[Rfam]
RNA sequence: CGGCUGUAAUGGUCAAGUGGUUGAAGGCUUUCAUUAUUCUUCUCCUGCUACCCCAUCUCCAUUGGAACCCCCUAGCGGCGCCCAGUGCGAAUGCCGCGGUGGCCACUCACUCGCACGGGUAACCUGCGAUGCUGUGGUGGCUCUAAGCAAUGAAGAUCACACUUGAGAGAGGUUUCACUCUGCAGAGGCAUCUUCACCGUCGCAUGGCGUGCUGGAUUACGAUCGCUAGGGGCUUGGGUUAGUGGUUGAAGAUGGAGAUGUCAACUCCAAUUUUUUUGCCUUUUUU
Numbered sequence: 001c002g003g004c005u006g007u008a009a010u011g012g013u014c015a016a017g018u019g020g021u022u023g024a025a026g027g028c029u030u031u032c033a034u035u036a037u038u039c040u041u042c043u044c045c046u047g048c049u050a051c052c053c054c055a056u057c058u059c060c061a062u063u064g065g066a067a068c069c070c071c072c073u074a075g076c077g078g079c080g081c082c083c084a085g086u087g088c089g090a091a092u093g094c095c096g097c098g099g100u101g102g103c104c105a106c107u108c109a110c111u112c113g114c115a116c117g118g119g120u121a122a123c124c125u126g127c128g129a130u131g132c133u134g135u136g137g138u139g140g141c142u143c144u145a146a147g148c149a150a151u152g153a154a155g156a157u158c159a160c161a162c163u164u165g166a167g168a169g170a171g172g173u174u175u176c177a178c179u180c181u182g183c184a185g186a187g188g189c190a191u192c193u194u195c196a197c198c199g200u201c202g203c204a205u206g207g208c209g210u211g212c213u214g215g216a217u218u219a220c221g222a223u224c225g226c227u228a229g230g231g232g233c234u235u236g237g238g239u240u241a242g243u244g245g246u247u248g249a250a251g252a253u254g255g256a257g258a259u260g261u262c263a264a265c266u267c268c269a270a271u272u273u274u275u276u277u278g279c280c281u282u283u284u285u286u
Stems, first nucleotide, its partner, number of pairs: 002014003016283002019280003024275004029270002034257001035255001039251004045245006052238001058065002070232001071230001073228005079221002082215008091205004096200004101142001103140002105135002108131001111129005117124002143147001151196007162187003169180003

Description
Shown here is a 286-nucleotide sequence from Colletotrichum karsti, a member of the family "Fungal signal recognition particle RNA". Lineage of the source: Eukaryota > Sordariomycetes > Glomerellales > Colletotrichum > Colletotrichum boninense species complex. A reference for the family is Regalia et al. (2002), "Prediction of signal recognition particle RNA genes", Nucleic Acids Res. Its Rfam clan is "SRP clan". The family's consensus secondary structure is taken from published work.